[Rfam]
RNA sequence: GGGAGACACCAUGAUCAAGCAGGUGGUUUUCCCAGGGCGAGGCUCAUCCCUUGCACUCCGGGUGUGCUGACCCCUGCGAUUUCCCCAAAUGCGGGAAACUCGACUGCAUAAUUUGUGGUAGUGGGGGACUGCGUUCGCGCUCUCCCCUG
Number, nucleotide and partner (000 for none) at each position: 001g033002g032003g031004a030005g029006a028007c000008a027009c026010c025011a024012u023013g000014a000015u000016c000017a000018a000019g000020c000021a000022g000023g012024u011025g010026g009027u008028u006029u005030u004031c003032c002033c001034a075035g074036g073037g072038c000039g071040a000041g068042g067043c066044u000045c064046a063047u062048c061049c060050c000051u000052u000053g000054c000055a000056c000057u000058c000059c000060g049061g048062g047063u046064g045065u000066g043067c042068u041069g000070a000071c039072c037073c036074c035075u034076g000077c102078g101079a100080u098081u097082u096083c000084c094085c093086c000087a000088a000089a000090u000091g000092c000093g085094g084095g000096a082097a081098a080099c000100u079101c078102g077103a000104c000105u000106g000107c000108a000109u000110a000111a000112u000113u000114u000115g000116u000117g000118g000119u000120a000121g000122u000123g148124g147125g146126g145127g144128a143129c000130u000131g140132c139133g138134u000135u000136c000137g000138c133139g132140c131141u000142c000143u128144c127145c126146c125147c124148u123149g000
RNA: U1 spliceosomal RNA